Small nucleolar RNA R16: an 80-nucleotide RNA sequence from Nicotiana tabacum.
RNA sequence: UAUGGCAUAUGAUGAUAUUACCAGAGUAGAUAUUGAAUAAUUCUGUUGAUUAUUUACUCCGCUUAUUAUCUAAUGCCAUA
Numbered sequence: 001u002a003u004g005g006c007a008u009a010u011g012a013u014g015a016u017a018u019u020a021c022c023a024g025a026g027u028a029g030a031u032a033u034u035g036a037a038u039a040a041u042u043c044u045g046u047u048g049a050u051u052a053u054u055u056a057c058u059c060c061g062c063u064u065a066u067u068a069u070c071u072a073a074u075g076c077c078a079u080a
Stems, first nucleotide, its partner, number of pairs: 003078005
Rfam 15.1 lists 884 matches to the family in 222 species. By type it is a C/D-box small nucleolar RNA. The match comes from Rfam's covariance-model search (58 bits). On this family, see Galardi et al., Mol Cell Biol 2002: "Purified box C/D snoRNPs are able to reproduce site-specific 2'-O-methylation of target RNA in vitro". NCBI's taxonomy places the organism under Eukaryota, Spermatophyta, lamiids, Solanaceae, Nicotiana.